[Rfam]
RNA sequence: AUGUAAAUCAAAUAACGUCGUCGUAUAAAAUCGGGAAUAUGGCCCGGAAGUAUCUACCAAGUCACCGUAAAUGACUUGACUACGAUUAGUAGAUGAAGCAUC
Numbered sequence: 001a002u003g004u005a006a007a008u009c010a011a012a013u014a015a016c017g018u019c020g021u022c023g024u025a026u027a028a029a030a031u032c033g034g035g036a037a038u039a040u041g042g043c044c045c046g047g048a049a050g051u052a053u054c055u056a057c058c059a060a061g062u063c064a065c066c067g068u069a070a071a072u073g074a075c076u077u078g079a080c081u082a083c084g085a086u087u088a089g090u091a092g093a094u095g096a097a098g099c100a101u102c
Stems, first nucleotide, its partner, number of pairs: 018088001020086006031047005058078007
RNA: Purine riboswitch aptamer
Organism: Kurthia sibirica